[Rfam]
The family of this 363-nucleotide part of an RNA from uncultured bacterium 70 is "Bacterial large subunit ribosomal RNA".
RNA sequence: AGUGAGAACUCUCGUUUAGGAACUCGGCAAACUCACCCCGUAACUUCGGAAGAAGGGGUGCUCCGUUAGCGUUAGAAGCUUCGCGCUUCGAAGCGUGAGGGAGUUGCAAUAAAGAGUCCCAAGCAACUGUUUACUAAAAACACAGGGCUAUGCGAAGUCGAAUACGACGUAUAUGGCCUGACGCCUGCCCGGUGCCGGAAGGUUAAAGGGAGAGGUUAGCCGCAAGGCGAAGCUUCGAGCUGAAGCCCCGGUAAACGGCGGCCGUAACUAUAACGGUCCUAAGGUAGCGAAAUUCCUUGUCGGGUAAGUUCCGACCUGCACGAAUGGCGUAAUGAUUUGGGAGCUGUCUCAACGAGAGGCACU
Numbered sequence: 001a002g003u004g005a006g007a008a009c010u011c012u013c014g015u016u017u018a019g020g021a022a023c024u025c026g027g028c029a030a031a032c033u034c035a036c037c038c039c040g041u042a043a044c045u046u047c048g049g050a051a052g053a054a055g056g057g058g059u060g061c062u063c064c065g066u067u068a069g070c071g072u073u074a075g076a077a078g079c080u081u082c083g084c085g086c087u088u089c090g091a092a093g094c095g096u097g098a099g100g101g102a103g104u105u106g107c108a109a110u111a112a113a114g115a116g117u118c119c120c121a122a123g124c125a126a127c128u129g130u131u132u133a134c135u136a137a138a139a140a141c142a143c144a145g146g147g148c149u150a151u152g153c154g155a156a157g158u159c160g161a162a163u164a165c166g167a168c169g170u171a172u173a174u175g176g177c178c179u180g181a182c183g184c185c186u187g188c189c190c191g192g193u194g195c196c197g198g199a200a201g202g203u204u205a206a207a208g209g210g211a212g213a214g215g216u217u218a219g220c221c222g223c224a225a226g227g228c229g230a231a232g233c234u235u236c237g238a239g240c241u242g243a244a245g246c247c248c249c250g251g252u253a254a255a256c257g258g259c260g261g262c263c264g265u266a267a268c269u270a271u272a273a274c275g276g277u278c279c280u281a282a283g284g285u286a287g288c289g290a291a292a293u294u295c296c297u298u299g300u301c302g303g304g305u306a307a308g309u310u311c312c313g314a315c316c317u318g319c320a321c322g323a324a325u326g327g328c329g330u331a332a333u334g335a336u337u338u339g340g341g342a343g344c345u346g347u348c349u350c351a352a353c354g355a356g357a358g359g360c361a362c363u
Base pairs, nucleotide, nucleotide: 001363002362003361004360009358010357011356012355013354014353015352016351018349019348020347035059036058037057038056039055044049060104061103062102063101064100082097083096084095085094086093087092105109117342118341119340120339121338122337123336124334125333128142129141130140145179146178147177148176149175150174151173152172153169157165158164182329183328184327185326187259188258189257192256193255194252195251196250197249198248201247202246203245207241208240212236213235214234215233216232219228220227260278261277262276263275264274265273279283289316299315300314301313302312303311304310